Notes: The record is a 141-nucleotide RNA sequence from Phycisphaerae bacterium RAS1, which matches "Group II catalytic intron D1-D4-4" in Rfam. Rfam's curators write: Group II introns are found in rRNA, tRNA and mRNA of organelles in fungi, plants and protists, and also in mRNA in bacteria. For this family Rfam cites "Group II introns: structure and catalytic versatility of large natural ribozymes" (Lehmann and Schmidt, Crit Rev Biochem Mol Biol, 2003). Pairs were carried over by alignment from the consensus structure. Rfam 15.1 lists 840 matches to the family in 506 species. NCBI's taxonomy places the organism under Bacteria, Pseudomonadati, Planctomycetota, Phycisphaerae.
[Rfam]
Nucleotides: 141
Stems, first nucleotide, its partner, number of pairs: 021044005052091005057082006067072001100115006118134003
Number, partner (000 for none) and nucleotide at each position: 001000c002000a003000g004000u005000g006000g007000g008000a009000g010000u011000a012000u013000a014000a015000g016000c017000c018000c019000a020000c021044c022043c023042g024041g025040c026000a027000a028000g029000g030000g031000u032000u033000c034000g035000c036000u037000c038000c039000a040025g041024c042023c043022g044021g045000u046000a047000g048000c049000a050000a051000u052091c053090g054089g055088a056087g057082c058081g059080g060079c061078g062077g063000u064000g065000g066000a067072g068000g069000u070000g071000a072067c073000g074000a075000a076000g077062c078061c079060g080059u081058c082057g083000a084000a085000g086000c087056c088055u089054u090053c091052g092000a093000u094000g095000g096000a097000a098000a099000g100115g101114g102113u103112c104111g105110c106000g107000u108000u109000g110105g111104c112103g113102a114101c115100u116000c117000c118134g119133c120132g121000a122000g123000u124000c125000g126000g127000c128000a129000g130000g131000c132120c133119g134118u135000a136000a137000c138000a139000g140000c141000g